[Rfam]
Source information
This 204-nucleotide RNA from Saccharomonospora viridis belongs to the Rfam family "Actinobacteria sRNA Ms_IGR-5". For this family Rfam cites "Identification of small RNAs in Mycobacterium smegmatis using heterologous Hfq" (Li et al., RNA, 2013).
RNA sequence: ACACGGGAAAGGAGGUGGUCCAACGGUGAAUAUCCACAGGACUCGUGAGGUGGCUGUCCACUGACAGCACACGGGCCACCCAGUUGUCACGUGUGUCUGCCGGUGAAUACCAGGCAGUCACCGGCCUCCAGUGCUCCCGAGGAAUGGUCCGCCCCGGGCCCGAACGGCUGACGACGUCCGGGAGUCGCACUGGGGGUCUUUUAU
Dot-bracket structure: .............((((((.................................))))))(((((.(.(((((((................)))))))..).))))).................((((((((((((..(((.((.........)).))).............................))))))))))))......